Rfam assigns this 83-nucleotide RNA sequence from Medicago truncatula to the family "MIR2617 microRNA precursor family". Its family is annotated with RISC complex and miRNA-mediated post-transcriptional gene silencing in the Gene Ontology. Rfam 15.1 lists 1,174 matches to the family in 2 species. The source organism's lineage runs through Eukaryota, Spermatophyta, Pentapetalae, Hologalegina and Medicago.
RNA sequence: AUGUAGUGUGACAUGCCCGUUUGGGAUUUACUCUGAUUUAUAAUUAUCAUUUAAUUGAUUUUGGGCAACGGGGUGUUACAAAA
Numbered sequence: 001a002u003g004u005a006g007u008g009u010g011a012c013a014u015g016c017c018c019g020u021u022u023g024g025g026a027u028u029u030a031c032u033c034u035g036a037u038u039u040a041u042a043a044u045u046a047u048c049a050u051u052u053a054a055u056u057g058a059u060u061u062u063g064g065g066c067a068a069c070g071g072g073g074u075g076u077u078a079c080a081a082a083a
Base pairs, nucleotide, nucleotide: 004083007080008079009078010077011076012075013074014073016072017071018070019069020068021067
Dot-bracket structure: ...(..((((((((.((((((.............................................))))))))))))))..)